[Rfam]
Small nucleolar RNA SNORA31: a 129-nucleotide RNA from Vombatus ursinus. NCBI's taxonomy places the organism under Eukaryota, Craniata, Teleostomi, Metatheria, Vombatus. ACA31 (SNORA31) belongs to the H/ACA class of snoRNAs which are thought to guide the sites of modification of uridines to pseudouridines. ACA31 is predicted to guide the pseudouridylation of U3713 in 28S rRNA and U218 in 18S rRNA. This family includes the mouse homologue snoMBI-161. The match comes from Rfam's covariance-model search (82 bits). A reference for the family is Huttenhofer et al. (2001), "RNomics: an experimental approach that identifies 201 candidates for novel, small, non-messenger RNAs in mouse", EMBO J.

RNA sequence: AUGCAUCUCUGACAGACCUGGAGCAGUUAUGUCUGCUUUUAAGGUUUCCACUAAGAUGCAAGAAAAAAUUUCCUCGCGCUUUCUCUCUGCCUGAUUGUGGCAGUCUAGAUUGAAUAGGGGAAUACAAGA
Numbered sequence: 001a002u003g004c005a006u007c008u009c010u011g012a013c014a015g016a017c018c019u020g021g022a023g024c025a026g027u028u029a030u031g032u033c034u035g036c037u038u039u040u041a042a043g044g045u046u047u048c049c050a051c052u053a054a055g056a057u058g059c060a061a062g063a064a065a066a067a068a069u070u071u072c073c074u075c076g077c078g079c080u081u082u083c084u085c086u087c088u089g090c091c092u093g094a095u096u097g098u099g100g101c102a103g104u105c106u107a108g109a110u111u112g113a114a115u116a117g118g119g120g121a122a123u124a125c126a127a128g129a
Base pairs, nucleotide, nucleotide: 002060003059004058005057006056007055008054010050011049014047015046016045017044018043021038022037023036024035025034026033071121072120073119074118075117079112082109083108084107087103088102089101090100091099